c-di-AMP riboswitch aptamer (ydaO/yuaA leader): a 120-nucleotide sequence from Sedimentibacter saalensis.
The base pairs follow the family's consensus structure.
Nucleotides: 120
Stems, first nucleotide, its partner, number of pairs: 012104003019029002032099005047085003055063003066079004
Number, partner (000 for none) and nucleotide at each position: 001000c002000a003000a004000u005000u006000u007000u008000u009000a010000u011000u012104g013103c014102c015000g016000a017000a018000u019029c020028u021000c022000a023000u024000a025000a026000a027000g028020a029019g030000u031000a032099c033098c034097g035096g036095g037000g038000a039000u040000a041000a042000u043000a044000u045000c046000g047085g048084g049083g050000u051000g052000a053000a054000g055063c056062c057061u058000a059000u060000u061057a062056g063055g064000c065000g066079g067078g068077g069076u070000a071000c072000c073000u074000c075000a076069a077068c078067c079066c080000u081000a082000a083049u084048c085047c086000g087000u088000c089000a090000a091000c092000u093000a094000a095036c096035c097034u098033g099032g100000a101000a102014g103013g104012c105000u106000a107000a108000g109000g110000a111000g112000g113000a114000u115000a116000a117000a118000a119000u120000g